[Rfam]
RNA sequence: AUGUUAUCACGAAAGGCAGAGGGAAUAGACCCGAUGAAGCCUUAGCAACCCUUUACUCUUUAAAGAAGGUGCUACAUUCUACCCGAAAACAAUGCAAAUUGGUUUUCAGGAUAGAUAACAA
Numbered sequence: 001a002u003g004u005u006a007u008c009a010c011g012a013a014a015g016g017c018a019g020a021g022g023g024a025a026u027a028g029a030c031c032c033g034a035u036g037a038a039g040c041c042u043u044a045g046c047a048a049c050c051c052u053u054u055a056c057u058c059u060u061u062a063a064a065g066a067a068g069g070u071g072c073u074a075c076a077u078u079c080u081a082c083c084c085g086a087a088a089a090c091a092a093u094g095c096a097a098a099u100u101g102g103u104u105u106u107c108a109g110g111a112u113a114g115a116u117a118a119c120a121a
Stems, first nucleotide, its partner, number of pairs: 002120007013043005021032003026081004044073004049069002051065004077113001082110002085107006
Shown here is a 121-nucleotide RNA sequence from Flavobacterium supellecticarium, a member of the family "SAM riboswitch aptamer (S box leader)". Lineage of the source: Bacteria > Pseudomonadati > Flavobacteriia > Flavobacteriaceae > Flavobacterium.